[Rfam]
RNA sequence: GUGAAGUGCAGUGAUGAAGCUUAAGUGUGGACUAGAGUUUCUGAUCAUUUGGUUGAAGACAAACCCUUGGCUGUCUGAGCACUCAU
Number, nucleotide and partner (000 for none) at each position: 001g086002u085003g084004a000005a083006g082007u081008g080009c079010a000011g000012u000013g000014a000015u000016g000017a000018a000019g000020c000021u000022u000023a000024a000025g000026u000027g000028u000029g000030g000031a000032c000033u000034a000035g000036a000037g000038u058039u057040u056041c055042u000043g000044a000045u051046c000047a000048u000049u000050u000051g045052g000053u000054u000055g041056a040057a039058g038059a000060c000061a000062a000063a000064c000065c000066c000067u000068u000069g000070g000071c000072u000073g000074u000075c000076u000077g000078a000079g009080c008081a007082c006083u005084c003085a002086u001